The family of this 130-nucleotide RNA from Ictidomys tridecemlineatus is "Small nucleolar RNA SNORA1". About the family: ACA1 is a member of the H/ACA class of snoRNA that guide the sites of modification of uridines to pseudouridines. The match comes from Rfam's covariance-model search (123 bits). Rfam links the family to the GO terms RNA processing and nucleolus.

[Rfam]
RNA sequence: AGCUCAUUCUAGAUGAGAAUGGGCACUGUUGAUCAGUGUCCAAAAUAGAUCAAUGUGGCUAAAUUGACACAGUUUAUGCAUCCAUCACAUUAUAUGUAUGGCAGUGGUGACAAUGAGACCUGUAACGUUU
Numbered sequence: 001a002g003c004u005c006a007u008u009c010u011a012g013a014u015g016a017g018a019a020u021g022g023g024c025a026c027u028g029u030u031g032a033u034c035a036g037u038g039u040c041c042a043a044a045a046u047a048g049a050u051c052a053a054u055g056u057g058g059c060u061a062a063a064u065u066g067a068c069a070c071a072g073u074u075u076a077u078g079c080a081u082c083c084a085u086c087a088c089a090u091u092a093u094a095u096g097u098a099u100g101g102c103a104g105u106g107g108u109g110a111c112a113a114u115g116a117g118a119c120c121u122g123u124a125a126c127g128u129u130u
Stems, first nucleotide, its partner, number of pairs: 002059002005055003020042007069123004083109006